[Rfam]
RNA sequence: GUGGGAUCUAUGAUGUUAUAUUGAACUGCGUUAUCUGUCUGCAAAUUCCUUGAGGAAGACUUGUAAUAAGCUGAGAUCCUGA
Dot-bracket structure: .((((((....................................................................)))))).
Rfam assigns this 82-nucleotide RNA from Amborella trichopoda to the family "Small nucleolar RNA snoR27".
A reference for the family is Brown et al. (2001), "Multiple snoRNA gene clusters from Arabidopsis", RNA.
Gene Ontology terms of the family: nucleolus and RNA processing.
The base pairs follow the family's consensus structure, which was predicted with WAR.
By type it is a C/D-box small nucleolar RNA.
It scores 50 bits against the family's covariance model.